[Rfam]
RNA: Bacterial small signal recognition particle RNA
Organism: Candidatus Annandia adelgestsuga
RNA sequence: UUCGACAAAUUUUAUAAUAUAAUAACUUUCAAUCCGGUCAGAUCUGGGAAGAAGCAGCCGUAGCGGUUAAUAUAUUGAUAAAAUAAAAGUUUAAUAU
Numbered sequence: 001u002u003c004g005a006c007a008a009a010u011u012u013u014a015u016a017a018u019a020u021a022a023u024a025a026c027u028u029u030c031a032a033u034c035c036g037g038u039c040a041g042a043u044c045u046g047g048g049a050a051g052a053a054g055c056a057g058c059c060g061u062a063g064c065g066g067u068u069a070a071u072a073u074a075u076u077g078a079u080a081a082a083a084u085a086a087a088a089g090u091u092u093a094a095u096a097u
Base pairs, nucleotide, nucleotide: 004091005090006089009084010083011082012081013080014079017075018074019073020072021071024068025067026066027065029063035060036059037058038057043052044051045050